The family of this 102-nucleotide RNA sequence from Exophiala dermatitidis is "Small nucleolar RNA Z13/snr52". Rfam links the family to the GO terms nucleolus and RNA processing. It is annotated as a C/D-box small nucleolar RNA. Rfam 15.1 lists 1,203 matches to the family in 866 species.
RNA sequence: GUUCCUUCAAUGAUGAAACAUUUCGGAUGUAAAUUCACAGACCUGUUCUGAAUGCGCAAAGCCAUGUGGAUAUUUCCGUUGCCUUCCUUCUGAUAUAACGAA
Numbered sequence: 001g002u003u004c005c006u007u008c009a010a011u012g013a014u015g016a017a018a019c020a021u022u023u024c025g026g027a028u029g030u031a032a033a034u035u036c037a038c039a040g041a042c043c044u045g046u047u048c049u050g051a052a053u054g055c056g057c058a059a060a061g062c063c064a065u066g067u068g069g070a071u072a073u074u075u076c077c078g079u080u081g082c083c084u085u086c087c088u089u090c091u092g093a094u095a096u097a098a099c100g101a102a
Stems, first nucleotide, its partner, number of pairs: 003102001005100001024078004

The family's consensus secondary structure was predicted with PFOLD.